[Rfam]
RNA sequence: AGCCGUGCGAUAAGCUCAUAGCGAACUAUUCUUUCGCCUUUUACUAAAGAAUACCGUGUGCUUGUCGUGCUAAGUGGCAUACGCCUAUUUUUGGAGGGUUGUCUCUUACAGAGAUCA
Numbered sequence: 001a002g003c004c005g006u007g008c009g010a011u012a013a014g015c016u017c018a019u020a021g022c023g024a025a026c027u028a029u030u031c032u033u034u035c036g037c038c039u040u041u042u043a044c045u046a047a048a049g050a051a052u053a054c055c056g057u058g059u060g061c062u063u064g065u066c067g068u069g070c071u072a073a074g075u076g077g078c079a080u081a082c083g084c085c086u087a088u089u090u091u092u093g094g095a096g097g098g099u100u101g102u103c104u105c106u107u108a109c110a111g112a113g114a115u116c117a
Stems, first nucleotide, its partner, number of pairs: 003077004008067008017058002027053008099117001101115004

Rfam assigns this 117-nucleotide RNA sequence from Microthlaspi erraticum to the family "U5 spliceosomal RNA". On this family, see Zwieb, Nucleic Acids Res 1997: "The uRNA database". By type it is a spliceosomal small nuclear RNA. Pairs were carried over by alignment from the consensus structure, which is taken from published work. Rfam's curators write: U5 RNA is a component of both types of known spliceosome. NCBI's taxonomy places the organism under Eukaryota, rosids, malvids, Brassicaceae, Microthlaspi.